[Rfam]
About this RNA
Shown here is a 49-nucleotide sequence from Hasllibacter halocynthiae, a member of the family "SAM/SAH riboswitch aptamer". The literature on the family includes a 2019 paper in Nucleic Acids Res by Weickhmann et al., "The structure of the SAM/SAH-binding riboswitch". The organism belongs to Hasllibacter, within Bacteria. The base pairs follow the family's consensus structure, which is taken from published work.
RNA sequence: AGCCCGCGCCAACGGCUUCCUGGCGGCGCGGGGACACCGCAACGGAGCA
Numbered sequence: 001a002g003c004c005c006g007c008g009c010c011a012a013c014g015g016c017u018u019c020c021u022g023g024c025g026g027c028g029c030g031g032g033g034a035c036a037c038c039g040c041a042a043c044g045g046a047g048c049a
Stems, first nucleotide, its partner, number of pairs: 004031007013022002015048003019045002